This 441-nucleotide part of an RNA from Bisgaardia hudsonensis belongs to the Rfam family "Bacterial large subunit ribosomal RNA".
RNA sequence: CUCCCCGAAAUCUAUUUAGGUAGAGCCUUGAGCGGACACCUUUGGGGGUAGAGCACUGUUUCGGCUAGGGGGUCAUCCCGACUUACCAACCCGAUGCAAACUACGAAUACCAAAGAGUGAUACUCAGGAGACACACGGCGGGUGCUAACGUUCGUCGUGAAGAGGGAAACAACCCAGACCGCCAGCUAAGGUCCCAAAAUCUAUAUUAAGUGGGAAACGAAGUGGGAAGGCUUAGACAGCUAGGAUGUUGGCUUAGAAGCAGCCACCAUUUAAAGAAAGCGUAAUAGCUCACUAGUCGAGUCGGCCUGCGCGGAAGAUGUAACGGGGCUAAAUAUAGUACCGAAGCUGCGGCAUCAGUAGCAAUACUGUUGGGUAGGGGAGCGUUGUGUAAGCGGAUGAAGGUGAAUCGAGAGGUUUGCUGGACGUAUCACAAGUGCGAAU
Numbered sequence: 001c002u003c004c005c006c007g008a009a010a011u012c013u014a015u016u017u018a019g020g021u022a023g024a025g026c027c028u029u030g031a032g033c034g035g036a037c038a039c040c041u042u043u044g045g046g047g048g049u050a051g052a053g054c055a056c057u058g059u060u061u062c063g064g065c066u067a068g069g070g071g072g073u074c075a076u077c078c079c080g081a082c083u084u085a086c087c088a089a090c091c092c093g094a095u096g097c098a099a100a101c102u103a104c105g106a107a108u109a110c111c112a113a114a115g116a117g118u119g120a121u122a123c124u125c126a127g128g129a130g131a132c133a134c135a136c137g138g139c140g141g142g143u144g145c146u147a148a149c150g151u152u153c154g155u156c157g158u159g160a161a162g163a164g165g166g167a168a169a170c171a172a173c174c175c176a177g178a179c180c181g182c183c184a185g186c187u188a189a190g191g192u193c194c195c196a197a198a199a200u201c202u203a204u205a206u207u208a209a210g211u212g213g214g215a216a217a218c219g220a221a222g223u224g225g226g227a228a229g230g231c232u233u234a235g236a237c238a239g240c241u242a243g244g245a246u247g248u249u250g251g252c253u254u255a256g257a258a259g260c261a262g263c264c265a266c267c268a269u270u271u272a273a274a275g276a277a278a279g280c281g282u283a284a285u286a287g288c289u290c291a292c293u294a295g296u297c298g299a300g301u302c303g304g305c306c307u308g309c310g311c312g313g314a315a316g317a318u319g320u321a322a323c324g325g326g327g328c329u330a331a332a333u334a335u336a337g338u339a340c341c342g343a344a345g346c347u348g349c350g351g352c353a354u355c356a357g358u359a360g361c362a363a364u365a366c367u368g369u370u371g372g373g374u375a376g377g378g379g380a381g382c383g384u385u386g387u388g389u390a391a392g393c394g395g396a397u398g399a400a401g402g403u404g405a406a407u408c409g410a411g412a413g414g415u416u417u418g419c420u421g422g423a424c425g426u427a428u429c430a431c432a433a434g435u436g437c438g439a440a441u
Stems, first nucleotide, its partner, number of pairs: 001381006011024005026130001027128006036121001040115006051104001052102002057098003061094004068087002070084005134159010164175003179351004184347003190341003199338001201337006218312002222309005229302003239296005245269003250264003270274001275290001279288002352371002355368005382436001384433005392426003401420008
A search with the family's covariance model found it, with a score of 2822 bits.